Description: Rfam assigns this 102-nucleotide RNA sequence from Waltiozyma pijperi to the family "Small nucleolar RNA snR48". The family's RNA type in Rfam is C/D-box small nucleolar RNA. Taxonomically the source falls in Waltiozyma (Eukaryota, Ascomycota, Saccharomycotina, Phaffomycetales). The family is grouped with related families in Rfam's "SNORD60 clan".
RNA sequence: UUAUGAUGAUCACCUUAUUAUAUGUUUUUUUCUGGCAUCUCUAAUGUUAGGGCUCUGUUUAACUACUAGCUCAAUGAAUACAACUCUUGACAAUAUCUGAUG
Numbered sequence: 001u002u003a004u005g006a007u008g009a010u011c012a013c014c015u016u017a018u019u020a021u022a023u024g025u026u027u028u029u030u031u032c033u034g035g036c037a038u039c040u041c042u043a044a045u046g047u048u049a050g051g052g053c054u055c056u057g058u059u060u061a062a063c064u065a066c067u068a069g070c071u072c073a074a075u076g077a078a079u080a081c082a083a084c085u086c087u088u089g090a091c092a093a094u095a096u097c098u099g100a101u102g
Stems, first nucleotide, its partner, number of pairs: 051071004